[Rfam]
RNA sequence: GAAUAAAAUACUAUACGAAGAUGUAUAAGCUUGUGAAUAGGCACAAGCGUUUCUACCUAAGUGACCGUAAAUCACUGGACUACAUCGAUUGAAAAGACACCU
Numbered sequence: 001g002a003a004u005a006a007a008a009u010a011c012u013a014u015a016c017g018a019a020g021a022u023g024u025a026u027a028a029g030c031u032u033g034u035g036a037a038u039a040g041g042c043a044c045a046a047g048c049g050u051u052u053c054u055a056c057c058u059a060a061g062u063g064a065c066c067g068u069a070a071a072u073c074a075c076u077g078g079a080c081u082a083c084a085u086c087g088a089u090u091g092a093a094a095a096g097a098c099a100c101c102u
Stems, first nucleotide, its partner, number of pairs: 020086006029048007057078002060076005
A member of the RNA family "Purine riboswitch aptamer" from Halolactibacillus alkaliphilus, 102 nucleotides long. The organism belongs to Halolactibacillus, within Bacteria. Pairs were carried over by alignment from the consensus structure, which is taken from published work.